[Rfam]
RNA: Rhodo-rpoB RNA
RNA sequence: GGAUCGGGAUUUGCCGGUGGGACGGCAGACAGAUUGAUCCGUCACGUCUUGUUUCAUGGUGCUGCUCACCCGAGGCCCCGGCGGUGAGAGCG
Number, nucleotide and partner (000 for none) at each position: 001g040002g039003a038004u037005c036006g000007g000008g000009a000010u029011u028012u027013g026014c025015c024016g023017g000018u000019g000020g000021g000022a000023c016024g015025g014026c013027a012028g011029a010030c000031a000032g000033a000034u000035u000036g005037a004038u003039c002040c001041g000042u000043c000044a000045c000046g000047u000048c000049u000050u000051g000052u000053u000054u000055c000056a000057u000058g000059g000060u000061g000062c000063u092064g091065c090066u089067c088068a000069c000070c084071c083072g082073a000074g000075g000076c000077c000078c000079c000080g000081g000082c072083g071084g070085u000086g000087a000088g067089a066090g065091c064092g063